[Rfam]
RNA sequence: UGCUUACCAAUGAUGGUGAAAAAUAAAUGUCUGAACAAAUGAAUCAAAGUGAUAUCAAUGUUUUCUCUGAGGUAAGCA
Numbered sequence: 001u002g003c004u005u006a007c008c009a010a011u012g013a014u015g016g017u018g019a020a021a022a023a024u025a026a027a028u029g030u031c032u033g034a035a036c037a038a039a040u041g042a043a044u045c046a047a048a049g050u051g052a053u054a055u056c057a058a059u060g061u062u063u064u065c066u067c068u069g070a071g072g073u074a075a076g077c078a
Stems, first nucleotide, its partner, number of pairs: 002077007
RNA: Small nucleolar RNA SNORD72
Organism: Dicentrarchus labrax